[Rfam]
RNA sequence: CCUUUUGGAUGGGCAUGAAGAUUGAAGAACUCAUAAAUUCAUGUGUUGCCAUCACCUUCUUCUCUGUCCCCACACAAGAAUGGAGUCGAAUAACAACACAACAUGU
Numbered sequence: 001c002c003u004u005u006u007g008g009a010u011g012g013g014c015a016u017g018a019a020g021a022u023u024g025a026a027g028a029a030c031u032c033a034u035a036a037a038u039u040c041a042u043g044u045g046u047u048g049c050c051a052u053c054a055c056c057u058u059c060u061u062c063u064c065u066g067u068c069c070c071c072a073c074a075c076a077a078g079a080a081u082g083g084a085g086u087c088g089a090a091u092a093a094c095a096a097c098a099c100a101a102c103a104u105g106u
Stems, first nucleotide, its partner, number of pairs: 042100007056085004061079003
Dot-bracket structure: .........................................(((((((.......((((.(((.............)))..))))........)))))))......